[Rfam]
RNA: RNase MRP
Organism: Pelodiscus sinensis
RNA sequence: GGGCGUUCUGAAGACCUGCACUCUAGGCCACGCACUGAGGACACUGGUUCCUCUCGGGCACCCAGCCCGCCUAGGGGAAAGUCCCCGGACCCCGGGCAGAGAGUGCCGCUCGCUCUAGCGCGCAGUGACCCGCCUCGCAAGCUCACAGUCUCUCCGCCGAGAAGCCCCCCGGGCUGAGCGGGUGGGCGCGGGAUGGGCUGCCCGUCACCCCGACAGUAACGCAGGUAGUGCGCGCGCCGCACCAACACAACGGGGCUCAUUCUCAGAACGCC
Numbered sequence: 001g002g003g004c005g006u007u008c009u010g011a012a013g014a015c016c017u018g019c020a021c022u023c024u025a026g027g028c029c030a031c032g033c034a035c036u037g038a039g040g041a042c043a044c045u046g047g048u049u050c051c052u053c054u055c056g057g058g059c060a061c062c063c064a065g066c067c068c069g070c071c072u073a074g075g076g077g078a079a080a081g082u083c084c085c086c087g088g089a090c091c092c093c094g095g096g097c098a099g100a101g102a103g104u105g106c107c108g109c110u111c112g113c114u115c116u117a118g119c120g121c122g123c124a125g126u127g128a129c130c131c132g133c134c135u136c137g138c139a140a141g142c143u144c145a146c147a148g149u150c151u152c153u154c155c156g157c158c159g160a161g162a163a164g165c166c167c168c169c170c171g172g173g174c175u176g177a178g179c180g181g182g183u184g185g186g187c188g189c190g191g192g193a194u195g196g197g198c199u200g201c202c203c204g205u206c207a208c209c210c211c212g213a214c215a216g217u218a219a220c221g222c223a224g225g226u227a228g229u230g231c232g233c234g235c236g237c238c239g240c241a242c243c244a245a246c247a248c249a250a251c252g253g254g255g256c257u258c259a260u261u262c263u264c265a266g267a268a269c270g271c272c
Stems, first nucleotide, its partner, number of pairs: 002272010014226006022075007037053005080257002083255004095107004108123002111120003125198002134192005142186004154181004164174004228242005